[Rfam]
Nucleotides: 082
Stems, first nucleotide, its partner, number of pairs: 007073004013067004018062005025055002028053001030051001032049003
Number, partner (000 for none) and nucleotide at each position: 001000g002000c003000a004000c005000g006000u007073c008072c009071c010070g011000c012000a013067a014066u015065g016064g017000c018062a019061c020060u021059g022058c023000a024000u025055g026054a027000a028053u029000u030051c031000a032049c033048g034047g035000u036000u037000g038000u039000u040000u041000c042000u043000g044000g045000g046000g047034c048033c049032g050000u051030g052000c053028a054026u055025c056000c057000a058022g059021u060020g061019g062018u063000u064016c065015c066014a067013u068000a069000c070010c071009g072008g073007g074000u075000g076000g077000c078000c079000a080000c081000c082000g

A member of the RNA family "mir-228 microRNA precursor family" from Nippostrongylus brasiliensis, 82 nucleotides long. Gene Ontology terms of the family: miRNA-mediated post-transcriptional gene silencing and RISC complex. NCBI's taxonomy places the organism under Eukaryota, Opisthokonta, Metazoa, Rhabditida, Nippostrongylus. Clan: mir-182 clan. A reference for the family is Lim et al. (2003), "The microRNAs of Caenorhabditis elegans", Genes Dev. Pairs were carried over by alignment from the consensus structure, which was predicted with RNAalifold.